RNA sequence: GUUCGUCUUCAGGGGCAGGGUGUAAUUCCCGACCGGUGGUUAUAGUCCACGACCUACUUUUUAAGUAGCUGAAUCGGUGAAAUUCCGAUACCGACAGUAUAGUCUGGAUAAAGAAGAUAGAG
Dot-bracket structure: ..(.((((((.......(((.......))).[[((((((.....[[))))...((...........))....(((((.......)))))]])).(((....]])))......)))))).)..